GibS sRNA: a 127-nucleotide RNA from Phocaeicola dorei. The family's consensus secondary structure is taken from published work. Taxonomically the source falls in Phocaeicola (Bacteria, Pseudomonadati, Bacteroidales, Bacteroidaceae). The literature on the family includes a 2020 paper in Nat Commun by Ryan et al., "A high-resolution transcriptome map identifies small RNA regulation of metabolism in the gut microbe Bacteroides thetaiotaomicron". Rfam describes the family as follows. A small RNA with a conserved region in the 5' region in gene clusters, related to carbon metabolism in Bacteroidetes.
[Rfam]
RNA sequence: GUGUUUUUCAUAGUAUUAGAUUAAAGGUUGAAGAUUGCAAUCGGCUUGAGAGAAGUAGUUGCAUCUGAAGUAGAAGCGUCUACUAUAAAAAAUAUAGAAAGGUUGUUCCUUACGGGACAGCCUUUUU
Number, nucleotide and partner (000 for none) at each position: 001g000002u000003g000004u000005u000006u000007u000008u000009c000010a000011u000012a000013g000014u000015a000016u000017u000018a000019g000020a000021u000022u000023a000024a000025a000026g000027g000028u000029u000030g000031a000032a000033g000034a000035u000036u000037g062038c061039a060040a059041u000042c000043g000044g000045c055046u054047u053048g000049a000050g000051a000052g000053a047054a046055g045056u000057a000058g000059u040060u039061g038062c037063a000064u000065c000066u000067g000068a000069a084070g083071u082072a081073g080074a079075a000076g000077c000078g000079u074080c073081u072082a071083c070084u069085a000086u000087a000088a000089a000090a000091a000092a000093u000094a000095u000096a000097g000098a125099a124100a123101g122102g121103u120104u119105g118106u117107u116108c115109c000110u000111u000112a000113c000114g000115g108116g107117a106118c105119a104120g103121c102122c101123u100124u099125u098126u000127u000